This 383-nucleotide RNA sequence from Aquihabitans sp. G128 belongs to the Rfam family "Bacterial RNase P class A". About the family: Ribonuclease P (RNase P) is a ubiquitous endoribonuclease, found in archaea, bacteria and eukarya as well as chloroplasts and mitochondria. The base pairs follow the family's consensus structure, which is taken from published work.
RNA sequence: UGAGUCGGCCGGGUGACCGCGGCUUCCGCUCUGCUCCGGCGGGUCGGUGGUCGAGGAAGGUCGGGGCUCCACAGGGCGACGGUGCUGGCGAGAGCCAGGUGGGGGCGACCUCACGGAUCGGGCCACAGAGAAACAGUCCGCCGAUGGCUGGAGCGAUCCAGCACAGGCAAGGGUGAAACGGUGCGGUAAGAGCGCACCAGCGGCCGGAGCGAUCCGGUCGGCUCGGCAACCCCCACCCGGAGCAAGGUCGAACAGAGGGCAGGCUGCCCGCCGCUCCUCCCCCGGGAGGAACCCUCAGGUGGACCGCACAGAUGGAUGGUCACCGAACCGGACCCCCGAAAGGGACCGGGGAACAGAACCCCGCCUACAGGCCGACUCAUCGU
Numbered sequence: 001u002g003a004g005u006c007g008g009c010c011g012g013g014u015g016a017c018c019g020c021g022g023c024u025u026c027c028g029c030u031c032u033g034c035u036c037c038g039g040c041g042g043g044u045c046g047g048u049g050g051u052c053g054a055g056g057a058a059g060g061u062c063g064g065g066g067c068u069c070c071a072c073a074g075g076g077c078g079a080c081g082g083u084g085c086u087g088g089c090g091a092g093a094g095c096c097a098g099g100u101g102g103g104g105g106c107g108a109c110c111u112c113a114c115g116g117a118u119c120g121g122g123c124c125a126c127a128g129a130g131a132a133a134c135a136g137u138c139c140g141c142c143g144a145u146g147g148c149u150g151g152a153g154c155g156a157u158c159c160a161g162c163a164c165a166g167g168c169a170a171g172g173g174u175g176a177a178a179c180g181g182u183g184c185g186g187u188a189a190g191a192g193c194g195c196a197c198c199a200g201c202g203g204c205c206g207g208a209g210c211g212a213u214c215c216g217g218u219c220g221g222c223u224c225g226g227c228a229a230c231c232c233c234c235a236c237c238c239g240g241a242g243c244a245a246g247g248u249c250g251a252a253c254a255g256a257g258g259g260c261a262g263g264c265u266g267c268c269c270g271c272c273g274c275u276c277c278u279c280c281c282c283c284g285g286g287a288g289g290a291a292c293c294c295u296c297a298g299g300u301g302g303a304c305c306g307c308a309c310a311g312a313u314g315g316a317u318g319g320u321c322a323c324c325g326a327a328c329c330g331g332a333c334c335c336c337c338g339a340a341a342g343g344g345a346c347c348g349g350g351g352a353a354c355a356g357a358a359c360c361c362c363g364c365c366u367a368c369a370g371g372c373c374g375a376c377u378c379a380u381c382g383u
Stems, first nucleotide, its partner, number of pairs: 001379010011368001012324007020053005026047003058366003062363005067242004075283002078280001081237004085098005099114001101112004115233002120231002122227003138172002140168003145163002180198006200222001201220008246305004255296005274288005